[Rfam]
RNA sequence: GUUGAAUAUGCGCUGAAUUUUCCGUAGGAAAAACGGGGGAACCAAACUUGACCUACAGGUCAAAAGGGGUGAAUCGGCACCGGGUGAAAGCCCUGGUCCGUAGGGCUACCACAGUCCGAAUCCGCCAGCUAACCUCGUAAGCAAAAGUGGGAUAAUGA
Numbered sequence: 001g002u003u004g005a006a007u008a009u010g011c012g013c014u015g016a017a018u019u020u021u022c023c024g025u026a027g028g029a030a031a032a033a034c035g036g037g038g039g040a041a042c043c044a045a046a047c048u049u050g051a052c053c054u055a056c057a058g059g060u061c062a063a064a065a066g067g068g069g070u071g072a073a074u075c076g077g078c079a080c081c082g083g084g085u086g087a088a089a090g091c092c093c094u095g096g097u098c099c100g101u102a103g104g105g106c107u108a109c110c111a112c113a114g115u116c117c118g119a120a121u122c123c124g125c126c127a128g129c130u131a132a133c134c135u136c137g138u139a140a141g142c143a144a145a146a147g148u149g150g151g152a153u154a155a156u157g158a
Stems, first nucleotide, its partner, number of pairs: 012142003018032005033138006043066001067123003075100003103117004
Rfam assigns this 158-nucleotide sequence from Paenibacillus wynnii to the family "c-di-AMP riboswitch aptamer (ydaO/yuaA leader)". Taxonomically the source falls in Paenibacillus (Bacteria, Bacillati, Bacillota, Bacilli).